pan motif: a 99-nucleotide RNA sequence from Anoxybacillus flavithermus. The base pairs follow the family's consensus structure, which is taken from published work. By type it is a cis-regulatory element. A search with the family's covariance model found it, with a score of 61 bits.

RNA sequence: UGGGCAGUAUCUUUGUAAGAACUGCACCACGCGCGCACGCAUACAACGUAUUUAUGAUCAUUUCUGCCUUGAUCCGAUGAAACGGACGGGGACAGAGGG
Numbered sequence: 001u002g003g004g005c006a007g008u009a010u011c012u013u014u015g016u017a018a019g020a021a022c023u024g025c026a027c028c029a030c031g032c033g034c035g036c037a038c039g040c041a042u043a044c045a046a047c048g049u050a051u052u053u054a055u056g057a058u059c060a061u062u063u064c065u066g067c068c069u070u071g072a073u074c075c076g077a078u079g080a081a082a083c084g085g086a087c088g089g090g091g092a093c094a095g096a097g098g099g
Base pairs, nucleotide, nucleotide: 001029002028003027004025005024006023007022008021010020011019064095065094066093067091068090069089070088071087073086074085075084
Dot-bracket structure: ((((((((.((.......))))))).)))..................................((((((((.(((........)))))))).)))....